RNA: SAM riboswitch aptamer (S box leader)
RNA sequence: UUCUUAUCACGAGAGACGGAGGGACAGGCCCUGUGAAGUCUCGGCAAAGCGCGCAAGCGUCAGUGCCAAAUCCUGCAAGUGUCCAUCACUUGAGAGAUAAGAC
Numbered sequence: 001u002u003c004u005u006a007u008c009a010c011g012a013g014a015g016a017c018g019g020a021g022g023g024a025c026a027g028g029c030c031c032u033g034u035g036a037a038g039u040c041u042c043g044g045c046a047a048a049g050c051g052c053g054c055a056a057g058c059g060u061c062a063g064u065g066c067c068a069a070a071u072c073c074u075g076c077a078a079g080u081g082u083c084c085a086u087c088a089c090u091u092g093a094g095a096g097a098u099a100a101g102a103c
Stems, first nucleotide, its partner, number of pairs: 002102007013042005021031003025075004043067004071095001076092006
Dot-bracket structure: .(((((((....(((((...(((.[[[[)))......)))))((((.................))))...(]]]]((((((.....))))))..)))))))).